[Rfam]
RNA sequence: CGGGGCAGCCGCCGUCCCUGUCCUCCAGGAGCUCACUUACCUUGGGCCGUGAGCUCCUCGAGGCCAGAGCCCGUGUCUGCCUCUGCACCAGC
Number, nucleotide and partner (000 for none) at each position: 001c000002g000003g000004g000005g080006c079007a078008g077009c000010c075011g074012c073013c000014g000015u000016c069017c000018c067019u066020g065021u000022c063023c000024u061025c060026c000027a058028g057029g056030a000031g054032c053033u052034c051035a050036c049037u046038u045039a000040c000041c000042u000043u000044g000045g038046g037047c000048c000049g036050u035051g034052a033053g032054c031055u000056c029057c028058u027059c000060g025061a024062g000063g022064c000065c020066a019067g018068a000069g016070c000071c000072c000073g012074u011075g010076u000077c008078u007079g006080c005081c000082u000083c000084u000085g000086c000087a000088c000089c000090a000091g000092c000

mir-339 microRNA precursor family: a 92-nucleotide sequence from Sus scrofa. Gene Ontology terms of the family: miRNA-mediated post-transcriptional gene silencing and RISC complex. The source organism's lineage runs through Eukaryota, Teleostomi, Theria, Artiodactyla and Sus. A reference for the family is Tesfaye et al. (2009), "Identification and expression profiling of microRNAs during bovine oocyte maturation using heterologous approach", Mol Reprod Dev. The family's consensus secondary structure was predicted with RNAalifold. Rfam 15.1 lists 128 matches to the family in 127 species. A search with the family's covariance model found it, with a score of 93 bits.